[Rfam]
The family of this 101-nucleotide RNA from Fopius arisanus is "mir-2788 microRNA precursor family". It scores 70 bits against the family's covariance model. Rfam 15.1 lists 89 matches to the family in 88 species. NCBI's taxonomy places the organism under Eukaryota, Opisthokonta, Insecta, Apocrita, Fopius.
RNA sequence: UGAAAAAGUUGAGGCAGAGAUGGGGUUUCUAUGCGGCAUGUGCCUUGCCGUAUAAAUAAACGCAAUGCCCUUAGAAAUCCCAAAAGUGUCCAACAAUCCUC
Numbered sequence: 001u002g003a004a005a006a007a008g009u010u011g012a013g014g015c016a017g018a019g020a021u022g023g024g025g026u027u028u029c030u031a032u033g034c035g036g037c038a039u040g041u042g043c044c045u046u047g048c049c050g051u052a053u054a055a056a057u058a059a060a061c062g063c064a065a066u067g068c069c070c071u072u073a074g075a076a077a078u079c080c081c082a083a084a085a086g087u088g089u090c091c092a093a094c095a096a097u098c099c100u101c
Base pairs, nucleotide, nucleotide: 008097009096010095011094014089015088016087021082022081023080024079025078026077027076028075029074031072033070035069036068037067038066039065041064042063043062